[Rfam]
A member of the RNA family "Small nucleolar RNA SNORA58" from Microtus ochrogaster, 136 nucleotides long. Rfam 15.1 lists 471 matches to the family in 320 species. By type it is an H/ACA-box small nucleolar RNA. The family's consensus secondary structure was predicted with PFOLD. A search with the family's covariance model found it, with a score of 106 bits.
RNA sequence: AAGCAUAUCCGUAGACCUUGUCUGACUCUUACUCAUGGCCAGGCAGGGGGGACAGUGUAUGCAAGAUUAAUUGGUGUUCAUGUGAUCACUAACCUGUUUAAUCAGUAACGUGAUAAAUUGCAGUACUCAAACGAAA
Numbered sequence: 001a002a003g004c005a006u007a008u009c010c011g012u013a014g015a016c017c018u019u020g021u022c023u024g025a026c027u028c029u030u031a032c033u034c035a036u037g038g039c040c041a042g043g044c045a046g047g048g049g050g051g052a053c054a055g056u057g058u059a060u061g062c063a064a065g066a067u068u069a070a071u072u073g074g075u076g077u078u079c080a081u082g083u084g085a086u087c088a089c090u091a092a093c094c095u096g097u098u099u100a101a102u103c104a105g106u107a108a109c110g111u112g113a114u115a116a117a118u119u120g121c122a123g124u125a126c127u128c129a130a131a132c133g134a135a136a
Stems, first nucleotide, its partner, number of pairs: 003062006016048009074128001076126001078125001081122003093112001095110003
Overview: On this family, see Huttenhofer et al., EMBO J 2001: "RNomics: an experimental approach that identifies 201 candidates for novel, small, non-messenger RNAs in mouse".